[Rfam]
RNA sequence: UCCCUUGAGAUUGCCGCGCCCUGCGCCUAUAUUCGUCUUGUCCUUCGGGACUAUGGACAUAAACGCGCUCGUAAUAAGCGGAUCGGACCCGGGGGCGGUACCCGGCGGCUCCACCAAAAUCCCUUUGUUGGGGGGACAUGGGGCCGAAACAGGAUCGACGAACGUCUAAAGGAGAUUGCUUUGUCCCGGUGAGGUACCACCGUUAUCGGUCCGUAAAGCAUAAUUGCCAACAACAAUCGUGCUCCGGCUAUGGCUCUGGCUGCUUAAGCAGUCCGAGUUGCCGAAACUUAAGUCCUUGCGCCUAGCCGCGUAAGGCGGGGUUCGCAGGCACCUGGCAACAGAAGCCUGCACU
Numbered sequence: 001u002c003c004c005u006u007g008a009g010a011u012u013g014c015c016g017c018g019c020c021c022u023g024c025g026c027c028u029a030u031a032u033u034c035g036u037c038u039u040g041u042c043c044u045u046c047g048g049g050a051c052u053a054u055g056g057a058c059a060u061a062a063a064c065g066c067g068c069u070c071g072u073a074a075u076a077a078g079c080g081g082a083u084c085g086g087a088c089c090c091g092g093g094g095g096c097g098g099u100a101c102c103c104g105g106c107g108g109c110u111c112c113a114c115c116a117a118a119a120u121c122c123c124u125u126u127g128u129u130g131g132g133g134g135g136a137c138a139u140g141g142g143g144c145c146g147a148a149a150c151a152g153g154a155u156c157g158a159c160g161a162a163c164g165u166c167u168a169a170a171g172g173a174g175a176u177u178g179c180u181u182u183g184u185c186c187c188g189g190u191g192a193g194g195u196a197c198c199a200c201c202g203u204u205a206u207c208g209g210u211c212c213g214u215a216a217a218g219c220a221u222a223a224u225u226g227c228c229a230a231c232a233a234c235a236a237u238c239g240u241g242c243u244c245c246g247g248c249u250a251u252g253g254c255u256c257u258g259g260c261u262g263c264u265u266a267a268g269c270a271g272u273c274c275g276a277g278u279u280g281c282c283g284a285a286a287c288u289u290a291a292g293u294c295c296u297u298g299c300g301c302c303u304a305g306c307c308g309c310g311u312a313a314g315g316c317g318g319g320g321u322u323c324g325c326a327g328g329c330a331c332c333u334g335g336c337a338a339c340a341g342a343a344g345c346c347u348g349c350a351c352u
Base pairs, nucleotide, nucleotide: 040051041050042049043048055186056185057184058183059182065179066178067177068174069173070172079164080163083161084160085159089105090104091103092102093101106146107145108144109143110142111141112140187202188201189200190199193212194211196210197209198208318333319332320331321330324349325348326347327346328345329344

Alphaproteobacteria transfer-messenger RNA: a 352-nucleotide RNA from Maritimibacter fusiformis. The match comes from Rfam's covariance-model search (304 bits). Pairs were carried over by alignment from the consensus structure, which is taken from published work. The family is grouped with related families in Rfam's "tRNA clan". For this family Rfam cites "Phylogenetic analysis of tmRNA secondary structure" (Williams and Bartel, RNA, 1996). From the family's description: Bacterial tmRNA, also known as 10Sa RNA or SsrA, is named for its dual tRNA and mRNA-like properties.